[Rfam]
RNA sequence: GGUAAAAGCAUCAUUGAGUGCAGCGUUGAUGAUAUCCAUUGCAGCAAUUUGUUGUUCCCGGCAGCUUGGAAUGCGGUUUCAUCUGCGCUGCACUCAAUCAUGUUUUUA
Numbered sequence: 001g002g003u004a005a006a007a008g009c010a011u012c013a014u015u016g017a018g019u020g021c022a023g024c025g026u027u028g029a030u031g032a033u034a035u036c037c038a039u040u041g042c043a044g045c046a047a048u049u050u051g052u053u054g055u056u057c058c059c060g061g062c063a064g065c066u067u068g069g070a071a072u073g074c075g076g077u078u079u080c081a082u083c084u085g086c087g088c089u090g091c092a093c094u095c096a097a098u099c100a101u102g103u104u105u106u107u108a
Base pairs, nucleotide, nucleotide: 006105007104008103009102010101011100013098014097015096016095017094018093019092020091021090022089023088024087025086026085028083030081031080032079
Source information: MIR397 microRNA precursor family: a 108-nucleotide RNA from Rhododendron simsii. The match comes from Rfam's covariance-model search (76 bits). Its family is annotated with miRNA-mediated post-transcriptional gene silencing and RISC complex in the Gene Ontology. On this family, see Mica et al., BMC Genomics 2009: "High throughput approaches reveal splicing of primary microRNA transcripts and tissue specific expression of mature microRNAs in Vitis vinifera". Lineage of the source: Eukaryota > Viridiplantae > Streptophyta > Ericales > Rhododendron.